[Rfam]
Annotation: The family of this 145-nucleotide RNA sequence from Candidatus Scalindua rubra is "Group II catalytic intron D1-D4-4". For this family Rfam cites "The ins and outs of group II introns" (Bonen and Vogel, Trends Genet, 2001). From the family's description: Group II introns are found in rRNA, tRNA and mRNA of organelles in fungi, plants and protists, and also in mRNA in bacteria.
RNA sequence: UAGCCAGUGAGAGUCUGGUCAUGGGAAUUGGCUGUUUGCCCAUGUAGCUAUAUUCGACAUAUUACUAAGGUGACUUAUAAUAUGAAAGCUCGAAAGUAAACGUCCUGUCAGUGUUAGGCUAGCAAAUCUUCAGGCCGUAGCAUAA
Numbered sequence: 001u002a003g004c005c006a007g008u009g010a011g012a013g014u015c016u017g018g019u020c021a022u023g024g025g026a027a028u029u030g031g032c033u034g035u036u037u038g039c040c041c042a043u044g045u046a047g048c049u050a051u052a053u054u055c056g057a058c059a060u061a062u063u064a065c066u067a068a069g070g071u072g073a074c075u076u077a078u079a080a081u082a083u084g085a086a087a088g089c090u091c092g093a094a095a096g097u098a099a100a101c102g103u104c105c106u107g108u109c110a111g112u113g114u115u116a117g118g119c120u121a122g123c124a125a126a127u128c129u130u131c132a133g134g135c136c137g138u139a140g141c142a143u144a145a
Stems, first nucleotide, its partner, number of pairs: 020044005053094004058084006067075001069074001102119001104118004122138002